[Rfam]
RNA sequence: AACGUGUGAUGACAUUUUGUUUCGGUCCCAGAUGACUGCCUGAUUACUUUUAAAUUGAGAUCAACUGAUGUU
Numbered sequence: 001a002a003c004g005u006g007u008g009a010u011g012a013c014a015u016u017u018u019g020u021u022u023c024g025g026u027c028c029c030a031g032a033u034g035a036c037u038g039c040c041u042g043a044u045u046a047c048u049u050u051u052a053a054a055u056u057g058a059g060a061u062c063a064a065c066u067g068a069u070g071u072u
Stems, first nucleotide, its partner, number of pairs: 001072004